[Rfam]
RNA sequence: GUCCAAGGUGAUUCCCUCUCCAAGGGGCCAAUUGAUGCCCUUCUCAGGAACAUAGAAACUUGGAAGAAAACUUGGAAUGCCGAAGGUCUUUGAGGAGCAAGGGAUGCAUAUUUCCUUUGCCUCACUUUGGUUGCCACAUGA
Numbered sequence: 001g002u003c004c005a006a007g008g009u010g011a012u013u014c015c016c017u018c019u020c021c022a023a024g025g026g027g028c029c030a031a032u033u034g035a036u037g038c039c040c041u042u043c044u045c046a047g048g049a050a051c052a053u054a055g056a057a058a059c060u061u062g063g064a065a066g067a068a069a070a071c072u073u074g075g076a077a078u079g080c081c082g083a084a085g086g087u088c089u090u091u092g093a094g095g096a097g098c099a100a101g102g103g104a105u106g107c108a109u110a111u112u113u114c115c116u117u118u119g120c121c122u123c124a125c126u127u128u129g130g131u132u133g134c135c136a137c138a139u140g141a
Base pairs, nucleotide, nucleotide: 002064003063004062005061006060007059009057019049020048021047023042024041025040026039027038028037075132076131078130085123092115094113095112096111